Overview:
A member of the RNA family "SAM-I/IV (S-adenosyl methionine) riboswitch aptamer", 93 nucleotides long. The family has 417 seed sequences and 567 matches in Rfam 15.1. The literature on the family includes a 2008 paper in RNA by Weinberg et al., "The aptamer core of SAM-IV riboswitches mimics the ligand-binding site of SAM-I riboswitches". Clan: SAM clan. Gene Ontology terms of the family: regulation of gene expression and S-adenosylmethionine metabolic process.

RNA sequence: CAUAAGCAUCAAGAACACUAAUUGUGUACCAACCGAUCUUCCGAGACACGGUGGUUUAGAAUGCGGGACAAUCGUUCAAAAGAUUCGGAAAUC
Numbered sequence: 001c002a003u004a005a006g007c008a009u010c011a012a013g014a015a016c017a018c019u020a021a022u023u024g025u026g027u028a029c030c031a032a033c034c035g036a037u038c039u040u041c042c043g044a045g046a047c048a049c050g051g052u053g054g055u056u057u058a059g060a061a062u063g064c065g066g067g068a069c070a071a072u073c074g075u076u077c078a079a080a081a082g083a084u085u086c087g088g089a090a091a092u093c
Stems, first nucleotide, its partner, number of pairs: 006064004015027004028055003033051003037046002040089005066077004